[Rfam]
RNA: skipping-rope RNA
RNA sequence: UCCGCAAGAGGACGGAAAGGCAUCCGUCACCCUGCGUUCCAGUUCGGGAGCGCGCGCCAGGGAGAUGCGUCCGGUGCCUCUGACGCCUUGCGAA
Numbered sequence: 001u002c003c004g005c006a007a008g009a010g011g012a013c014g015g016a017a018a019g020g021c022a023u024c025c026g027u028c029a030c031c032c033u034g035c036g037u038u039c040c041a042g043u044u045c046g047g048g049a050g051c052g053c054g055c056g057c058c059a060g061g062g063a064g065a066u067g068c069g070u071c072c073g074g075u076g077c078c079u080c081u082g083a084c085g086c087c088u089u090g091c092g093a094a
Base pairs, nucleotide, nucleotide: 001094003092004091005090006089007088008087011028012027013026014025015024019079020078030062031048032047033046034045067086068085069084070083071082